About this RNA
The record is a 108-nucleotide sequence from Vibrio caribbeanicus, which matches "Qrr RNA" in Rfam. On this family, see Tu and Bassler, Genes Dev 2007: "Multiple small RNAs act additively to integrate sensory information and control quorum sensing in Vibrio harveyi". It scores 99 bits against the family's covariance model.
[Rfam]
RNA sequence: UGACCCUUCUUAAGCCGAGGGUCACCUAGCCAACUGACGUUGUUAGUGAACCUAAUUUGUUCACACUAUAUAUGGCCAAUCCCGACUCUUGGGCUUGGCCUUUUCUUU
Numbered sequence: 001u002g003a004c005c006c007u008u009c010u011u012a013a014g015c016c017g018a019g020g021g022u023c024a025c026c027u028a029g030c031c032a033a034c035u036g037a038c039g040u041u042g043u044u045a046g047u048g049a050a051c052c053u054a055a056u057u058u059g060u061u062c063a064c065a066c067u068a069u070a071u072a073u074g075g076c077c078a079a080u081c082c083c084g085a086c087u088c089u090u091g092g093g094c095u096u097g098g099c100c101u102u103u104u105c106u107u108u
Stems, first nucleotide, its partner, number of pairs: 001024006041072003046064006076098004081093003
The organism belongs to Vibrio caribbeanicus, within Bacteria.